[Rfam]
RNA: TPP riboswitch aptamer (THI element)
Organism: Lactococcus hircilactis
RNA sequence: AAUUUGCACAAUGGGUCUCGCAAACUGCGAGUGAGAAAGACCAUCUGACCUGAUCGAGAUCAUGCUCGCGUAGGGAUGUGUAUGCUGAAUGUU
Dot-bracket structure: .....(((((((((.((((((.....)))))......)..))))....((((..((((......))))..))))..)))))............
Numbered sequence: 001a002a003u004u005u006g007c008a009c010a011a012u013g014g015g016u017c018u019c020g021c022a023a024a025c026u027g028c029g030a031g032u033g034a035g036a037a038a039g040a041c042c043a044u045c046u047g048a049c050c051u052g053a054u055c056g057a058g059a060u061c062a063u064g065c066u067c068g069c070g071u072a073g074g075g076a077u078g079u080g081u082a083u084g085c086u087g088a089a090u091g092u093u
Stems, first nucleotide, its partner, number of pairs: 006081005011044004016038001017031005049074004055068004